Rfam assigns this 68-nucleotide RNA from Mycolicibacterium hassiacum to the family "ASdes TB sRNA". The family's RNA type in Rfam is small RNA. The match comes from Rfam's covariance-model search (72 bits). A reference for the family is Arnvig and Young (2009), "Identification of small RNAs in Mycobacterium tuberculosis", Mol Microbiol.

RNA sequence: AGCUGAACCGGGUCGACCGCCCGGGUGACGACGAGGUAGUCGCGCAGCGCGACGCUGUGCCGGUUCUC
Numbered sequence: 001a002g003c004u005g006a007a008c009c010g011g012g013u014c015g016a017c018c019g020c021c022c023g024g025g026u027g028a029c030g031a032c033g034a035g036g037u038a039g040u041c042g043c044g045c046a047g048c049g050c051g052a053c054g055c056u057g058u059g060c061c062g063g064u065u066c067u068c
Stems, first nucleotide, its partner, number of pairs: 004063001008059001012029002016026003035056003040052005